[Rfam]
Nucleotides: 114
Base pairs, nucleotide, nucleotide: 004036005035006034007033008032013030014029015028016027017026018025044075045074046073050069051068052067053066054065055064056063057062081108083106084105085104086103087102088101089100090099091098092097
Number, partner (000 for none) and nucleotide at each position: 001000u002000a003000g004036u005035c006034c007033u008032u009000u010000a011000a012000u013030c014029c015028u016027g017026u018025c019000c020000c021000g022000u023000g024000a025018g026017g027016c028015a029014g030013g031000c032008a033007a034006g035005g036004a037000g038000a039000a040000u041000c042000u043000g044075a045074u046073a047000a048000u049000a050069g051068g052067u053066g054065c055064a056063g057062g058000c059000u060000g061000u062057c063056c064055u065054g066053u067052a068051c069050c070000c071000c072000c073046u074045a075044u076000u077000u078000u079000c080000u081108g082000u083106a084105a085104u086103c087102u088101c089100c090099u091098u092097g093000u094000u095000c096000u097092c098091a099090a100089g101088g102087a103086g104085a105084u106083u107000u108081u109000u110000u111000a112000u113000a114000u